Source information: Small nucleolar RNA SNORA73 family: a 205-nucleotide RNA from Dasypus novemcinctus. Lineage of the source: Eukaryota > Vertebrata > Teleostomi > Mammalia > Dasypus. It is one of the family's seed sequences. From the family's description: U17 (SNORA73A and SNORA73B) also known as E1 belongs to the H/ACA class of small nucleolar RNAs (snoRNAs). Vertebrate U17 is intron-encoded and ranges in length from 200-230 nucleotides, longer than most snoRNAs. It is one of the most abundant snoRNAs in human cells and is essential for the cleavage of pre-rRNA within the 5' external transcribed spacer (ETS). This cleavage leads to the formation of 18S rRNA. Regions of the U17 RNA are complementary to rRNA and act as guides for RNA/RNA interactions, although these regions do not seem to be well conserved between organisms. By type it is an H/ACA-box small nucleolar RNA.
RNA sequence: CCAACGUGGAUACCCCGGGAGGUCACUCUCCCCGGGCUCUGUCCAGGUGGCGCAGGGGAGCACAGGGCUCUGCCCAGUGAUGUACAGUCCCAUUCCACAACGUUGGAGAGGAAGCCGGGCUCUCGAGCCCCCACCUGCAUAUUCCUACAGCUUCUCUGAGUCUUAUUGACAAUGACUGAGGAGAAAAACCAUGCAGGAAACAUAU
Dot-bracket structure: ((((((((((((.(((.((((....))))....)))...)))))..((((.....(((((.((((............)..))).)..))))...)))).)))))))...........................(((((((..........((((((...(((.....))).......)))))).......)))))))........
The family is grouped with related families in Rfam's "snR30-U17 clan". A reference for the family is Enright et al. (1996), "5'ETS rRNA processing facilitated by four small RNAs: U14, E3, U17, and U3", RNA.